[Rfam]
Record summary:
The family of this 395-nucleotide RNA sequence from Tritonibacter aquimaris is "Bacterial RNase P class A". The family's RNA type in Rfam is ribozyme. A search with the family's covariance model found it, with a score of 304 bits. The family's consensus secondary structure is taken from published work. For this family Rfam cites "Ribonuclease P: unity and diversity in a tRNA processing ribozyme" (Frank and Pace, Annu Rev Biochem, 1998). Rfam's curators write: Ribonuclease P (RNase P) is a ubiquitous endoribonuclease, found in archaea, bacteria and eukarya as well as chloroplasts and mitochondria.
RNA sequence: ACAGAAGGCCGGACGGUCGCGUUGCCGCAAGGCGCGAGGAAAGUCCGGGCUCCACAAGGCAACGGUGCCGGGUAACGCCCGGGCGGGGUGACCCGACGGAAAGCGCCACAGAAAUGAAACCGCCUCGCACGCCGGGGUAAGGAUGAAACGGUGGGGUAAGAGCCCACCGCGCCGCUGGUAACAGUGGCGGCACGGCAAGCCCCACCGGGAGCAAUGCCAAAUAGGGUCCCCGCGCGGGUUGGUCGGGCAACCGAUACCACCGCUAGGCAUGCUUUGACCGAGAGGGACCGGGUUGGCAGCUAGAGACAUUUGGCAACAGAUGUCGCAGAUGAAUGACCGUCUACGGGCGCCAUGUGCGCCCUGGACAAAACCCGGCUUACAGGCCUUCUGUGCUA
Number, nucleotide and partner (000 for none) at each position: 001a391002c390003a389004g388005a387006a386007g385008g384009c383010c382011g380012g341013a340014c339015g338016g337017u336018c335019g000020c036021g035022u034023u000024g033025c032026c031027g000028c000029a000030a000031g026032g025033c024034g022035c021036g020037a000038g000039g000040a000041a378042a377043g376044u000045c375046c374047g373048g372049g371050c211051u210052c209053c208054a000055c000056a000057a000058g274059g273060c000061a000062a000063c207064g206065g205066u204067g203068c082069c081070g080071g079072g078073u000074a000075a000076c000077g000078c072079c071080c070081g069082g068083g097084c095085g094086g093087g092088g000089u000090g000091a000092c087093c086094c085095g084096a000097c083098g202099g201100a000101a000102a000103g200104c199105g196106c195107c194108a000109c000110a000111g000112a000113a000114a000115u000116g000117a000118a000119a000120c142121c141122g138123c137124c136125u135126c134127g133128c000129a000130c000131g000132c000133c127134g126135g125136g124137g123138u122139a000140a000141g121142g120143a000144u000145g000146a000147a000148a000149c000150g168151g167152u166153g165154g164155g163156g000157u000158a000159a000160g000161a000162g000163c155164c154165c153166a152167c151168c150169g191170c189171g188172c187173c186174g185175c184176u183177g182178g000179u000180a000181a000182c177183a176184g175185u174186g173187g172188c171189g170190g000191c169192a000193c000194g107195g106196c105197a000198a000199g104200c103201c099202c098203c067204a066205c065206c064207g063208g053209g052210a051211g050212c000213a000214a000215u298216g297217c296218c295219a000220a000221a000222u000223a000224g000225g289226g288227u287228c286229c285230c284231c000232g000233c000234g000235c000236g000237g000238g000239u000240u000241g000242g000243u000244c000245g000246g000247g000248c000249a000250a000251c000252c000253g000254a000255u000256a000257c000258c000259a000260c000261c000262g000263c000264u000265a000266g000267g000268c276269a275270u000271g000272c000273u059274u058275u269276g268277a000278c000279c000280g000281a000282g000283a000284g230285g229286g228287a227288c226289c225290g000291g000292g000293u000294u000295g218296g217297c216298a215299g000300c000301u000302a000303g000304a000305g324306a323307c322308a321309u320310u319311u318312g317313g000314c000315a000316a000317c312318a311319g310320a309321u308322g307323u306324c305325g000326c000327a000328g000329a000330u000331g000332a000333a000334u000335g018336a017337c016338c015339g014340u013341c012342u000343a000344c000345g000346g000347g000348c000349g000350c000351c000352a000353u000354g000355u000356g000357c000358g000359c000360c000361c000362u000363g000364g000365a000366c000367a000368a000369a000370a000371c049372c048373c047374g046375g045376c043377u042378u041379a000380c011381a000382g010383g009384c008385c007386u006387u005388c004389u003390g002391u001392g000393c000394u000395a000